Record summary
The family of this 73-nucleotide RNA is "Fluoride riboswitch aptamer (crcB RNA motif)". The family's consensus secondary structure is taken from published work.
RNA sequence: AGGCAGAAAGGGAAUGAAGUUCUCCCCCGAUUUUUAUCGAAACCGCCAAUGAGCUGAUGACUUCUGUGCAAUG
Numbered sequence: 001a002g003g004c005a006g007a008a009a010g011g012g013a014a015u016g017a018a019g020u021u022c023u024c025c026c027c028c029g030a031u032u033u034u035u036a037u038c039g040a041a042a043c044c045g046c047c048a049a050u051g052a053g054c055u056g057a058u059g060a061c062u063u064c065u066g067u068g069c070a071a072u073g
Base pairs, nucleotide, nucleotide: 010026011025012024013023016064017063018062019061020060021059045054046053